[Rfam]
RNA sequence: GGGCAAUGAUGAAACAUUUAGUCAUGCACCACUCUGAGAUCAUUCUCAGUGAUGAUAUUGAACUAUUACCCAUCAAUCUGUGCCU
Numbered sequence: 001g002g003g004c005a006a007u008g009a010u011g012a013a014a015c016a017u018u019u020a021g022u023c024a025u026g027c028a029c030c031a032c033u034c035u036g037a038g039a040u041c042a043u044u045c046u047c048a049g050u051g052a053u054g055a056u057a058u059u060g061a062a063c064u065a066u067u068a069c070c071c072a073u074c075a076a077u078c079u080g081u082g083c084c085u
Stems, first nucleotide, its partner, number of pairs: 001085004

Shown here is an 85-nucleotide RNA from Dendrobium nobile, a member of the family "Small nucleolar RNA Z221/R21b". Lineage of the source: Eukaryota > Spermatophyta > Petrosaviidae > Epidendroideae > Dendrobium. Gene Ontology terms of the family: nucleolus and RNA processing. It is annotated as a C/D-box small nucleolar RNA.